[Rfam]
RNA sequence: GACACCCAGUGCUCCUCUGUUGAACUCAAAAGCAGAACCUGCGUUGACUUCAACAGGAGCAAGACUCAGUCCU
Numbered sequence: 001g002a003c004a005c006c007c008a009g010u011g012c013u014c015c016u017c018u019g020u021u022g023a024a025c026u027c028a029a030a031a032g033c034a035g036a037a038c039c040u041g042c043g044u045u046g047a048c049u050u051c052a053a054c055a056g057g058a059g060c061a062a063g064a065c066u067c068a069g070u071c072c073u
Stems, first nucleotide, its partner, number of pairs: 001071002005069001008066003013061001015059003018055007026047004032042002

Shown here is a 73-nucleotide RNA from Pomatorhinus ruficollis, a member of the family "mir-1744 microRNA precursor family".
The base pairs follow the family's consensus structure, which was predicted with RNAalifold.
The match comes from Rfam's covariance-model search (78 bits).
Lineage of the source: Eukaryota > Bilateria > Teleostomi > Theropoda > Pomatorhinus.